[Rfam]
RNA: SAM (S-adenosyl methionine) riboswitch aptamer
RNA sequence: GGUCAUGAGUGCCAGCGUCAAGCCCCGGCUUGCUGGCCGCCAACCCUCCUCCGCGGCGGGGUGGUCCGGGUGACGACCAGGCCCGACGCAAAGGCGCCGGGCAAGCGCGGAUU
Numbered sequence: 001g002g003u004c005a006u007g008a009g010u011g012c013c014a015g016c017g018u019c020a021a022g023c024c025c026c027g028g029c030u031u032g033c034u035g036g037c038c039g040c041c042a043a044c045c046c047u048c049c050u051c052c053g054c055g056g057c058g059g060g061g062u063g064g065u066c067c068g069g070g071u072g073a074c075g076a077c078c079a080g081g082c083c084c085g086a087c088g089c090a091a092a093g094g095c096g097c098c099g100g101g102c103a104a105g106c107g108c109g110g111a112u113u
Base pairs, nucleotide, nucleotide: 001078002077003076004075009038011037012036013035014034015033016032021030022029039065040064041063044061045060046059048056049055081102082101083100084099085098087096088095089094